[Rfam]
RNA sequence: AGUGCAGGAUUGUGUGUAUUGGCUUGACGCUGUGAAAUGAUGUGCGUUUCUUGCCGAAAGUGUUUCCUGCGAAACAAAUUUGAGGAAAGUGGGCAGUUGGGUUAAGCUUGAUAUUUGCUUUUUCCAACAAUCAUUUUCCUCUCAUUG
Numbered sequence: 001a002g003u004g005c006a007g008g009a010u011u012g013u014g015u016g017u018a019u020u021g022g023c024u025u026g027a028c029g030c031u032g033u034g035a036a037a038u039g040a041u042g043u044g045c046g047u048u049u050c051u052u053g054c055c056g057a058a059a060g061u062g063u064u065u066c067c068u069g070c071g072a073a074a075c076a077a078a079u080u081u082g083a084g085g086a087a088a089g090u091g092g093g094c095a096g097u098u099g100g101g102u103u104a105a106g107c108u109u110g111a112u113a114u115u116u117g118c119u120u121u122u123u124c125c126a127a128c129a130a131u132c133a134u135u136u137u138c139c140u141c142u143c144a145u146u147g
Stems, first nucleotide, its partner, number of pairs: 004070005009064001014045006082141011096128004
RNA: small nucleolar RNA snoR135